Shown here is a 56-nucleotide RNA from Hemibagrus wyckioides, a member of the family "U7 small nuclear RNA".

RNA sequence: AAAAAUUGCUCUUUUAGUGUUUGUCUAGUAGGGUCCUGUAAUGUUCAGGACCCCAU
Number, nucleotide and partner (000 for none) at each position: 001a000002a000003a000004a000005a000006u000007u000008g000009c000010u000011c000012u000013u000014u000015u000016a000017g000018u000019g000020u000021u000022u000023g000024u000025c000026u000027a000028g000029u000030a000031g053032g052033g051034u050035c049036c048037u047038g046039u000040a000041a000042u000043g000044u000045u000046c038047a037048g036049g035050a034051c033052c032053c031054c000055a000056u000
Record summary
The source organism's lineage runs through Eukaryota, Deuterostomia, Craniata, Gnathostomata and Hemibagrus. From the family's description: Animal histone pre-mRNAs are spliced by a different mechanism than nuclear pre-mRNAs and self-splicing introns. It scores 45 bits against the family's covariance model.